The record is a 157-nucleotide sequence from Populus alba, which matches "MIR2912 microRNA precursor family" in Rfam. Pairs were carried over by alignment from the consensus structure, which was predicted with RNAalifold. It scores 100 bits against the family's covariance model. Rfam 15.1 lists 15,051 matches to the family in 15 species. Lineage of the source: Eukaryota > Streptophytina > Pentapetalae > rosids > Populus.
RNA sequence: UCUAGAACUCGAGAUAUGGGCUGGACACUGAACAAUUUCUGGGCUGCAGGACAGAUUCAGACUUCUCUGUUGUUGCUAUAAUUUAGACUUGAAAACAACCUUCUUAGAUCUUGGCCUCCACAUGAAAGUUGUAGGCCUAUGUCUUACCAAAUCUUUC
Numbered sequence: 001u002c003u004a005g006a007a008c009u010c011g012a013g014a015u016a017u018g019g020g021c022u023g024g025a026c027a028c029u030g031a032a033c034a035a036u037u038u039c040u041g042g043g044c045u046g047c048a049g050g051a052c053a054g055a056u057u058c059a060g061a062c063u064u065c066u067c068u069g070u071u072g073u074u075g076c077u078a079u080a081a082u083u084u085a086g087a088c089u090u091g092a093a094a095a096c097a098a099c100c101u102u103c104u105u106a107g108a109u110c111u112u113g114g115c116c117u118c119c120a121c122a123u124g125a126a127a128g129u130u131g132u133a134g135g136c137c138u139a140u141g142u143c144u145u146a147c148c149a150a151a152u153c154u155u156u157c
Stems, first nucleotide, its partner, number of pairs: 005157003009151001011145010021134003025130001027129003035123002041119003048112004054105002060099001063097001068092001072088003